[Rfam]
RNA sequence: UAAGCCUUCAAGGGGAGCCGAGCGCGGCUGAGAGUGAACAAUCGUUCAGACCCUAUGAACCUGUUAGUUAGUACUAGCGUAGGGAUGGUGGCUUUUUUGAUG
Number, nucleotide and partner (000 for none) at each position: 001u000002a000003a000004g000005c000006c090007u000008u088009c087010a086011a054012g053013g052014g051015g000016a000017g028018c027019c026020g025021a000022g000023c000024g000025c020026g019027g018028c017029u000030g000031a000032g000033a000034g000035u048036g047037a046038a045039c044040a000041a000042u000043c000044g039045u038046u037047c036048a035049g000050a000051c014052c013053c012054u011055a000056u000057g000058a000059a000060c083061c082062u081063g080064u077065u076066a075067g074068u000069u000070a000071g000072u000073a000074c067075u066076a065077g064078c000079g000080u063081a062082g061083g060084g000085a000086u010087g009088g008089u000090g006091g000092c000093u000094u000095u000096u000097u000098u000099g000100a000101u000102g000
Record summary
A member of the RNA family "TPP riboswitch aptamer (THI element)" from Natronobacillus azotifigens, 102 nucleotides long. The family's consensus secondary structure is taken from published work. It scores 64 bits against the family's covariance model. The source organism's lineage runs through Bacteria, Bacillati, Bacilli, Bacillaceae and Natronobacillus.